[Rfam]
RNA sequence: GUCUUAUCCAGAGUGGCGGAGGGAACGGGCCCUGUGAAGCCACAGCAACCGGCCGAGUGAUUCGGCGUCAGGUGCUAAUUCCCGCCCGGCUGGCGAACCGGGAGAGAUGAGAU
Numbered sequence: 001g002u003c004u005u006a007u008c009c010a011g012a013g014u015g016g017c018g019g020a021g022g023g024a025a026c027g028g029g030c031c032c033u034g035u036g037a038a039g040c041c042a043c044a045g046c047a048a049c050c051g052g053c054c055g056a057g058u059g060a061u062u063c064g065g066c067g068u069c070a071g072g073u074g075c076u077a078a079u080u081c082c083c084g085c086c087c088g089g090c091u092g093g094c095g096a097a098c099c100g101g102g103a104g105a106g107a108u109g110a111g112a113u
Stems, first nucleotide, its partner, number of pairs: 001113008013043005021032003026084004044076004049072002052066004080105001085102005
SAM riboswitch aptamer (S box leader): a 113-nucleotide RNA from bacterium HR36.
Its family is annotated with regulation of gene expression in the Gene Ontology.
The match comes from Rfam's covariance-model search (85 bits).
The SAM riboswitch is found upstream of a number of genes which code for proteins involved in methionine or cysteine biosynthesis in Gram-positive bacteria.